[Rfam]
RNA sequence: GCCCCGGUGGCGAAAUUGGUAGACGCAUCGGACUUAAAAUCCGCGGCCGCAACACACGCGGCGUGGGGGUUCGAUUCCCCCCCGGGGCA
Numbered sequence: 001g002c003c004c005c006g007g008u009g010g011c012g013a014a015a016u017u018g019g020u021a022g023a024c025g026c027a028u029c030g031g032a033c034u035u036a037a038a039a040u041c042c043g044c045g046g047c048c049g050c051a052a053c054a055c056a057c058g059c060g061g062c063g064u065g066g067g068g069g070u071u072c073g074a075u076u077c078c079c080c081c082c083c084g085g086g087g088c089a
Stems, first nucleotide, its partner, number of pairs: 001088007010026003029043004065081005
This 89-nucleotide RNA sequence from Rhizobacter terrae belongs to the Rfam family "tRNA". Rfam classes the family as a transfer RNA. It scores 58 bits against the family's covariance model. About the family: Transfer RNA (tRNA) molecules are approximately 80 nucleotides in length. Gene Ontology term of the family: triplet codon-amino acid adaptor activity.